Rfam assigns this 92-nucleotide RNA from Eucalyptus grandis to the family "Small nucleolar RNA snoR109".

[Rfam]
RNA sequence: CGGCUGUAGCCACAUCCAACUCCGUAGAAGUUAACUGGCCGGUUGUUGUCAAUUUCCCGUCGACAAAUCUGCUUACCGAACUUCUCACAUUC
Numbered sequence: 001c002g003g004c005u006g007u008a009g010c011c012a013c014a015u016c017c018a019a020c021u022c023c024g025u026a027g028a029a030g031u032u033a034a035c036u037g038g039c040c041g042g043u044u045g046u047u048g049u050c051a052a053u054u055u056c057c058c059g060u061c062g063a064c065a066a067a068u069c070u071g072c073u074u075a076c077c078g079a080a081c082u083u084c085u086c087a088c089a090u091u092c
Base pairs, nucleotide, nucleotide: 026085027084028083029082030081031080032079037073038072039071041069042068043067044066045064046063047062048061
Dot-bracket structure: .........................(((((((....(((.((((((((............)))).)))).))).....))))))).......

It is annotated as an H/ACA-box small nucleolar RNA. The literature on the family includes a 2002 paper in Curr Biol by Marker et al., "Experimental RNomics: identification of 140 candidates for small non-messenger RNAs in the plant Arabidopsis thaliana". Pairs were carried over by alignment from the consensus structure, which was predicted with WAR.